DUF805 RNA: a 69-nucleotide sequence from Pseudomonas sp. MRSN 12121. Rfam classes the family as a cis-regulatory element. The source organism's lineage runs through Bacteria, Pseudomonadota, Gammaproteobacteria, Pseudomonadaceae and Pseudomonas. It scores 62 bits against the family's covariance model. Rfam 15.1 lists 281 matches to the family in 219 species.

RNA sequence: GGCACAUGGAUUCCGGAAACCAUUCAAUAAACGGGGCGAACUCCGAAAAGCCAGACGAGUAGGAACUUA
Numbered sequence: 001g002g003c004a005c006a007u008g009g010a011u012u013c014c015g016g017a018a019a020c021c022a023u024u025c026a027a028u029a030a031a032c033g034g035g036g037c038g039a040a041c042u043c044c045g046a047a048a049a050g051c052c053a054g055a056c057g058a059g060u061a062g063g064a065a066c067u068u069a
Stems, first nucleotide, its partner, number of pairs: 006023004035052003042063002